[Rfam]
RNA: Iron response element II
Organism: Mionectes macconnelli
RNA sequence: UAAUAGUCUUGAACAGUGUUUUAAAUUAUUA
Number, nucleotide and partner (000 for none) at each position: 001u031002a030003a029004u028005a027006g026007u025008c000009u024010u023011g022012a021013a020014c018015a000016g000017u000018g014019u000020u013021u012022u011023a010024a009025a007026u006027u005028a004029u003030u002031a001